[Rfam]
Nucleotides: 067
Base pairs, nucleotide, nucleotide: 011049012048013047014046015045016044017043025039026038027037028036029035053067054066055065056064057063
Number, partner (000 for none) and nucleotide at each position: 001000a002000a003000g004000u005000a006000a007000g008000g009000u010000u011049g012048u013047u014046c015045a016044g017043c018000u019000a020000a021000a022000a023000g024000c025039g026038c027037g028036a029035c030000g031000u032000c033000c034000u035029g036028u037027c038026g039025c040000a041000a042000c043017g044016c045015u046014g047013a048012a049011c050000g051000a052000g053067c054066c055065u056064u057063c058000a059000u060000c061000u062000u063057g064056a065055a066054g067053g